[Rfam]
RNA sequence: UUGAAACAGGUUCGAAAACUUCCCUGUAUAAAAAACUAAGGAGAA
Numbered sequence: 001u002u003g004a005a006a007c008a009g010g011u012u013c014g015a016a017a018a019c020u021u022c023c024c025u026g027u028a029u030a031a032a033a034a035a036c037u038a039a040g041g042a043g044a045a
Stems, first nucleotide, its partner, number of pairs: 006027005016037001
This 45-nucleotide RNA sequence from Nosocomiicoccus massiliensis belongs to the Rfam family "PreQ1 (pre queuosine) riboswitch aptamer". The pairing is the family consensus, mapped onto this sequence. Rfam links the family to the GO term queuosine biosynthetic process. Rfam 15.1 lists 873 matches to the family in 692 species.